[Rfam]
Shown here is an 82-nucleotide RNA sequence from Myripristis murdjan, a member of the family "mir-729 microRNA precursor family". The match comes from Rfam's covariance-model search (61 bits). Gene Ontology terms of the family: RISC complex and miRNA-mediated post-transcriptional gene silencing.

RNA sequence: CACUCCCAUACUCGGGGUUGUAUCAUAACCAAGCUGUGAGAGGUAGAUCGCAUGGGUAUGAUACGACCUGGGUUUGGAGGUG
Dot-bracket structure: ((((.((..(.((.(((((((((((((.(((.(((.(.......).)..)).))).))))))))))))).)).).)).))))
Taxonomically the source falls in Myripristis (Eukaryota, Opisthokonta, Actinopteri, Myripristinae).